Source information:
Plastid-psbA-1 3UTR RNA: a 122-nucleotide sequence from Eucalyptus grandis. Its Rfam clan is "Plastid-psbA 3UTR RNA clan". The organism belongs to Eucalyptus, within Eukaryota. A search with the family's covariance model found it, with a score of 90 bits.
RNA sequence: UCAAAGUUCCAUCUAUAAAUGGAUAAGACUUUGGUCUUAGUAUAAGUCUGGCCGAGUUUUUGAUUGGAAAUGAGCAGUAACCAACACUCUUGAUAGAACAAGAAAUUGGUUAUUGUUCAUUU
Numbered sequence: 001u002c003a004a005a006g007u008u009c010c011a012u013c014u015a016u017a018a019a020u021g022g023a024u025a026a027g028a029c030u031u032u033g034g035u036c037u038u039a040g041u042a043u044a045a046g047u048c049u050g051g052c053c054g055a056g057u058u059u060u061u062g063a064u065u066g067g068a069a070a071u072g073a074g075c076a077g078u079a080a081c082c083a084a085c086a087c088u089c090u091u092g093a094u095a096g097a098a099c100a101a102g103a104a105a106u107u108g109g110u111u112a113u114u115g116u117u118c119a120u121u122u
Base pairs, nucleotide, nucleotide: 008023009022010021011020012019068122069121070120071119072118073117074116075115076114077113078112079111080110082108083107084106088103089102090101091100